Shown here is a 95-nucleotide RNA from Desulfitobacterium hafniense, a member of the family "c-di-GMP-I riboswitch aptamer". The base pairs follow the family's consensus structure, which is taken from published work. Rfam links the family to the GO term cyclic-di-GMP binding.
RNA sequence: UGAUGGUUGGAGCAAACUUUGUGAAAGCAAAGGACGCUAAAGCUAUGGGUCUAAGGCCGUCGCGCAAGACCGGCUAGGAUCGCCAGGCUACAAGU
Numbered sequence: 001u002g003a004u005g006g007u008u009g010g011a012g013c014a015a016a017c018u019u020u021g022u023g024a025a026a027g028c029a030a031a032g033g034a035c036g037c038u039a040a041a042g043c044u045a046u047g048g049g050u051c052u053a054a055g056g057c058c059g060u061c062g063c064g065c066a067a068g069a070c071c072g073g074c075u076a077g078g079a080u081c082g083c084c085a086g087g088c089u090a091c092a093a094g095u
Stems, first nucleotide, its partner, number of pairs: 012037002017032006041089004046085003049080003056074004